RNA sequence: CUCUUAUCAAGAGCGGUGGAGGGAUUAGGCCCUGUGAAGCCCGGCAACCAUUAAGGCAAGAAAAUUUGCCUUGAAAGGUGCUAAAUCCUACAGAUCAGGCGGGAUCUGGAAGAUAAGAG
Dot-bracket structure: ((((((((....(.(((...(((..[[[[)))......))))((((.((.((((((((........))))))))..))))))...(]]]]((((((......))))))..)))))))))